[Rfam]
RNA sequence: AACCUCAUGAUGCUGGCGAUACUGCAUCAGGAACUGACUGGAGAGCGAUGAGAGGCCAUCAGUUCCUGAUGCACUGCCUUUAGCAUUACAACG
Dot-bracket structure: ......................(((((.(((((((((.(((..............)))))))))))).)))))....................
Numbered sequence: 001a002a003c004c005u006c007a008u009g010a011u012g013c014u015g016g017c018g019a020u021a022c023u024g025c026a027u028c029a030g031g032a033a034c035u036g037a038c039u040g041g042a043g044a045g046c047g048a049u050g051a052g053a054g055g056c057c058a059u060c061a062g063u064u065c066c067u068g069a070u071g072c073a074c075u076g077c078c079u080u081u082a083g084c085a086u087u088a089c090a091a092c093g
Stems, first nucleotide, its partner, number of pairs: 023073005029067009039058003

mir-217 microRNA precursor family: a 93-nucleotide RNA sequence from Betta splendens. Taxonomically the source falls in Betta (Eukaryota, Euteleostomi, Actinopteri, Clupeocephala). Rfam links the family to the GO terms RISC complex and miRNA-mediated post-transcriptional gene silencing.